RNA sequence: GUCGGGGUAGUGACCGGUGAACAUCGUGGGGCGGCUGGGCACGCA
Numbered sequence: 001g002u003c004g005g006g007g008u009a010g011u012g013a014c015c016g017g018u019g020a021a022c023a024u025c026g027u028g029g030g031g032c033g034g035c036u037g038g039g040c041a042c043g044c045a
Stems, first nucleotide, its partner, number of pairs: 012032001014030002017027002
RNA: Mycobacterium sRNA Ms_AS-5